[Rfam]
RNA sequence: GACAAUACAAUUGGUAAGACUCGUAUAUAAUCGGUAAUAUGGUCCGAAAGUUUCUACCUGCAAACCAUAAAUUUGCAGACUACGGGGAGUUGUAUUUUAUUA
Numbered sequence: 001g002a003c004a005a006u007a008c009a010a011u012u013g014g015u016a017a018g019a020c021u022c023g024u025a026u027a028u029a030a031u032c033g034g035u036a037a038u039a040u041g042g043u044c045c046g047a048a049a050g051u052u053u054c055u056a057c058c059u060g061c062a063a064a065c066c067a068u069a070a071a072u073u074u075g076c077a078g079a080c081u082a083c084g085g086g087g088a089g090u091u092g093u094a095u096u097u098u099a100u101u102a
Base pairs, nucleotide, nucleotide: 020086021085022084023083024082025081031047032046033045034044058078059077060076061075062074063073064072

A member of the RNA family "Purine riboswitch aptamer" from Clostridium sulfidigenes, 102 nucleotides long. About the family: Riboswitches are metabolite binding domains within certain messenger RNAs that serve as precision sensors for their corresponding targets. The match comes from Rfam's covariance-model search (80 bits). Its family is annotated with purine nucleobase biosynthetic process in the Gene Ontology. Taxonomically the source falls in Clostridium (Bacteria, Bacillati, Eubacteriales, Clostridiaceae). Pairs were carried over by alignment from the consensus structure, which is taken from published work. The family has 133 seed sequences and 4,097 matches in Rfam 15.1.